[Rfam]
RNA sequence: GAUCCCGGAGGCCAACAUCCGCCAGCGCCAUGCGCCCGCGGGUGCCCUUGGUG
Numbered sequence: 001g002a003u004c005c006c007g008g009a010g011g012c013c014a015a016c017a018u019c020c021g022c023c024a025g026c027g028c029c030a031u032g033c034g035c036c037c038g039c040g041g042g043u044g045c046c047c048u049u050g051g052u053g
Base pairs, nucleotide, nucleotide: 016044017043018042019041020040021039022038025035026034027033028032
Shown here is a 53-nucleotide sequence from Devosia enhydra, a member of the family "ffh sRNA". For this family Rfam cites "Identification of candidate structured RNAs in the marine organism 'Candidatus Pelagibacter ubique'" (Meyer et al., BMC Genomics, 2009). Rfam classes the family as a small RNA.